[Rfam]
RNA sequence: AGAAGUGAUGAUGUUUGACCAUCUUUCGGGGCUGACAGUGAUGCUGACAACAUAACCCUUACUGAACUUCU
Numbered sequence: 001a002g003a004a005g006u007g008a009u010g011a012u013g014u015u016u017g018a019c020c021a022u023c024u025u026u027c028g029g030g031g032c033u034g035a036c037a038g039u040g041a042u043g044c045u046g047a048c049a050a051c052a053u054a055a056c057c058c059u060u061a062c063u064g065a066a067c068u069u070c071u
Stems, first nucleotide, its partner, number of pairs: 001071006

Notes:
Shown here is a 71-nucleotide RNA sequence from Branchiostoma floridae, a member of the family "Small nucleolar RNA SNORD2". The family's consensus secondary structure was predicted with WAR. Its family is annotated with nucleolus and RNA processing in the Gene Ontology.